[Rfam]
RNA sequence: GUGUGCUGGUGAUGAUUGAAGAGCUAGCUAUGGUGAAUUCGAUGAAUGUGCUCACGUACCACUGGGUGCGCAGCACUGCUGAUAUGCAUUAUUCCGCAGUUCAUCUGAGGCAAGC
Numbered sequence: 001g002u003g004u005g006c007u008g009g010u011g012a013u014g015a016u017u018g019a020a021g022a023g024c025u026a027g028c029u030a031u032g033g034u035g036a037a038u039u040c041g042a043u044g045a046a047u048g049u050g051c052u053c054a055c056g057u058a059c060c061a062c063u064g065g066g067u068g069c070g071c072a073g074c075a076c077u078g079c080u081g082a083u084a085u086g087c088a089u090u091a092u093u094c095c096g097c098a099g100u101u102c103a104u105c106u107g108a109g110g111c112a113a114g115c
Stems, first nucleotide, its partner, number of pairs: 002114001004112004
The record is a 115-nucleotide sequence from Leersia perrieri, which matches "Small nucleolar RNA Z188" in Rfam. It scores 98 bits against the family's covariance model. The family's RNA type in Rfam is C/D-box small nucleolar RNA.